[Rfam]
The family of this 72-nucleotide RNA sequence from Carlito syrichta is "Small nucleolar RNA SNORD56". Taxonomically the source falls in Carlito (Eukaryota, Metazoa, Eumetazoa, Tarsiiformes). For this family Rfam cites "Purified box C/D snoRNPs are able to reproduce site-specific 2'-O-methylation of target RNA in vitro" (Galardi et al., Mol Cell Biol, 2002). Gene Ontology terms of the family: RNA processing and nucleolus.
RNA sequence: CUAUAAUAAUGGCAAUAUUUUCCAUCAACAACAAUUUACCUAAUGAGUGUUUGGUGCUUUGGGUCUGGGUGA
Numbered sequence: 001c002u003a004u005a006a007u008a009a010u011g012g013c014a015a016u017a018u019u020u021u022c023c024a025u026c027a028a029c030a031a032c033a034a035u036u037u038a039c040c041u042a043a044u045g046a047g048u049g050u051u052u053g054g055u056g057c058u059u060u061g062g063g064u065c066u067g068g069g070u071g072a
Stems, first nucleotide, its partner, number of pairs: 002071003009025003